[Rfam]
RNA: Mitochondrial DNA control region secondary structure A
Organism: Pongo abelii
RNA sequence: UACUUUCAUGGGGGGGGCAAAUUUGGGUAUCACCCAAGUAUUGAUCCAUCCGUGACAAUUUUAUGUAUAUUGUGCAUUACUGCUAAUCACCAUGAAUAUUAUAUA
Number, nucleotide and partner (000 for none) at each position: 001u000002a000003c000004u000005u096006u095007c094008a093009u092010g091011g090012g088013g087014g000015g000016g000017g083018c082019a081020a000021a000022u000023u037024u036025g035026g034027g033028u032029a000030u000031c000032a028033c027034c026035c025036a024037a023038g059039u058040a000041u055042u054043g053044a000045u000046c000047c000048a000049u000050c000051c000052g000053u043054g042055a041056c000057a000058a039059u038060u000061u000062u000063a077064u076065g075066u074067a073068u000069a000070u000071u000072g000073u067074g066075c065076a064077u063078u000079a000080c000081u019082g018083c017084u000085a000086a000087u013088c012089a000090c011091c010092a009093u008094g007095a006096a005097u000098a000099u000100u000101a000102u000103a000104u000105a000